About this RNA
This 164-nucleotide RNA from Jeotgalibacillus soli belongs to the Rfam family "glmS glucosamine-6-phosphate activated ribozyme aptamer". The family's consensus secondary structure is taken from published work. About the family: This entry contains a glucosamine-6-phosphate activated ribozyme that is found in the mRNA for GlmS. GlmS is an enzyme that uses fructose-6-phosphate and glutamine to generate glucosamine-6-phosphate.
[Rfam]
RNA sequence: AAGCCAUAUAAAGCGCCAGGACUGCCCGGAUCGAUUCGGCAGUUGACGAGGAGGAGGAGCAUCGAGUUUUCGGCGGAUGCCUCCCGACUGAUCGGAUGCACAGUCGUAGCCCGUUCUUAAAUCAUGAAGGUGACUUCGUGGACAAAGGAGCGGGAUUGCACCCA
Numbered sequence: 001a002a003g004c005c006a007u008a009u010a011a012a013g014c015g016c017c018a019g020g021a022c023u024g025c026c027c028g029g030a031u032c033g034a035u036u037c038g039g040c041a042g043u044u045g046a047c048g049a050g051g052a053g054g055a056g057g058a059g060c061a062u063c064g065a066g067u068u069u070u071c072g073g074c075g076g077a078u079g080c081c082u083c084c085c086g087a088c089u090g091a092u093c094g095g096a097u098g099c100a101c102a103g104u105c106g107u108a109g110c111c112c113g114u115u116c117u118u119a120a121a122u123c124a125u126g127a128a129g130g131u132g133a134c135u136u137c138g139u140g141g142a143c144a145a146a147g148g149a150g151c152g153g154g155a156u157u158g159c160a161c162c163c164a
Stems, first nucleotide, its partner, number of pairs: 020044007029035001053084005062073004085106006110154007123140007